The record is a 54-nucleotide RNA from Hemibagrus wyckioides, which matches "UnaL2 LINE 3' element" in Rfam. The family has 30 seed sequences and 493,311 matches in Rfam 15.1. It is annotated as a cis-regulatory element. Its family is annotated with transposition, RNA-mediated in the Gene Ontology. Pairs were carried over by alignment from the consensus structure, which is taken from published work.

RNA sequence: UUAAAACACUCUUGUACGUCGCUCUAGAUAAGAGUGUCUGCUAAAUGCCAAAAA
Dot-bracket structure: ............((((...((((((.....))))))..))).)...........